The record is a 67-nucleotide RNA from Lactococcus hircilactis, which matches "Fluoride riboswitch aptamer (crcB RNA motif)" in Rfam. NCBI's taxonomy places the organism under Bacteria, Bacilli, Lactobacillales, Streptococcaceae, Lactococcus. Its family is annotated with response to fluoride and positive regulation of gene expression in the Gene Ontology.

[Rfam]
RNA sequence: AAAAGAAAUGGGUAUGGUGCACACCCAAAACCGCUGACAAAAGUCAACUGAUGGCGCCUACAAUGUG
Numbered sequence: 001a002a003a004a005g006a007a008a009u010g011g012g013u014a015u016g017g018u019g020c021a022c023a024c025c026c027a028a029a030a031c032c033g034c035u036g037a038c039a040a041a042a043g044u045c046a047a048c049u050g051a052u053g054g055c056g057c058c059u060a061c062a063a064u065g066u067g
Stems, first nucleotide, its partner, number of pairs: 010026004016058005033048001035046002